permuted transfer-messenger RNA: a 218-nucleotide RNA sequence from Marinicauda pacifica. The literature on the family includes a 1996 paper in RNA by Williams and Bartel, "Phylogenetic analysis of tmRNA secondary structure". Pairs were carried over by alignment from the consensus structure, which is taken from published work. The organism belongs to Marinicauda, within Bacteria. The match comes from Rfam's covariance-model search (133 bits).
RNA sequence: GGCGAUAAAUGCGCGUGUAAUAACCAGACCGGACCCGGGUGCGAAUCCCGGCGGCUCCACCAACUUCUCUUCCGCGGCGUUGCGCGGUGUGUGAGGGGCCGAAUUAGGAUCGACGGAUGGCUAAAGACGUAGCGUUCGCCCGAAUGGGCUUCGUUACCAGCCCGUUUACAGUAGUUGCCAACGACAACACUGCUGAAGAGUUCGCCCUCGCUGCGUAA
Numbered sequence: 001g002g003c004g005a006u007a008a009a010u011g012c013g014c015g016u017g018u019a020a021u022a023a024c025c026a027g028a029c030c031g032g033a034c035c036c037g038g039g040u041g042c043g044a045a046u047c048c049c050g051g052c053g054g055c056u057c058c059a060c061c062a063a064c065u066u067c068u069c070u071u072c073c074g075c076g077g078c079g080u081u082g083c084g085c086g087g088u089g090u091g092u093g094a095g096g097g098g099c100c101g102a103a104u105u106a107g108g109a110u111c112g113a114c115g116g117a118u119g120g121c122u123a124a125a126g127a128c129g130u131a132g133c134g135u136u137c138g139c140c141c142g143a144a145u146g147g148g149c150u151u152c153g154u155u156a157c158c159a160g161c162c163c164g165u166u167u168a169c170a171g172u173a174g175u176u177g178c179c180a181a182c183g184a185c186a187a188c189a190c191u192g193c194u195g196a197a198g199a200g201u202u203c204g205c206c207c208u209c210g211c212u213g214c215g216u217a218a
Stems, first nucleotide, its partner, number of pairs: 001140005013130004025119002029116003035051005052101007141153004